[Rfam]
RNA sequence: UCAUGAACUUUAUACUGCGCACUUUACUUAGAAGGUUUAUAGAAGGACAUAUAGGAA
Numbered sequence: 001u002c003a004u005g006a007a008c009u010u011u012a013u014a015c016u017g018c019g020c021a022c023u024u025u026a027c028u029u030a031g032a033a034g035g036u037u038u039a040u041a042g043a044a045g046g047a048c049a050u051a052u053a054g055g056a057a
Stems, first nucleotide, its partner, number of pairs: 019037001022034004
This 57-nucleotide sequence from Capsicum baccatum belongs to the Rfam family "Plastid-ndhJ 3UTR RNA". Pairs were carried over by alignment from the consensus structure, which was predicted with LocARNA. Taxonomically the source falls in Capsicum (Eukaryota, Streptophytina, Tracheophyta, Solanales). Rfam's curators write: Plastid ndhJ is a non-coding RNA (ncRNA) present in plastids. It was identified as a short stem-loop motif in the 3 prime untranslate region (3UTR) of ndhJ gene. On this family, see Richter et al., Plant Commun 2023: "Retrograde signaling in plants: A critical review focusing on the GUN pathway and beyond". It is annotated as a cis-regulatory element.